[Rfam]
RNA sequence: AAAUGCAAAGAUAAAAACACAUCCCGAUAGGUAGUCCGGGAGCAACAGAAAUGUUGUCAGUAACCUGCCUCCUUUGGUUGUCCAUUCUUUGCGGGUAAGCA
Dot-bracket structure: ...((((((((..........(((((..........)))))((((((....)))))).........(((......))).......))))))))........
This 101-nucleotide RNA sequence from Ruminococcaceae bacterium BL-6 belongs to the Rfam family "azaaromatic riboswitch aptamer (yjdF RNA)". A search with the family's covariance model found it, with a score of 89 bits. Lineage of the source: Bacteria > Bacillota > Clostridia > Eubacteriales > Oscillospiraceae.